[Rfam]
RNA sequence: UAUGGGAAAAGAUGCCAAGAUUCAAACAUUUGGUCAGAGGCGCCAGCUCUGCUGAAUGGUGUUUCUGCACAUCAGUCUGAUCCCAAG
Numbered sequence: 001u002a003u004g005g006g007a008a009a010a011g012a013u014g015c016c017a018a019g020a021u022u023c024a025a026a027c028a029u030u031u032g033g034u035c036a037g038a039g040g041c042g043c044c045a046g047c048u049c050u051g052c053u054g055a056a057u058g059g060u061g062u063u064u065c066u067g068c069a070c071a072u073c074a075g076u077c078u079g080a081u082c083c084c085a086a087g
Stems, first nucleotide, its partner, number of pairs: 001087001003085005
RNA: Small nucleolar RNA Z122
Organism: Carpinus fangiana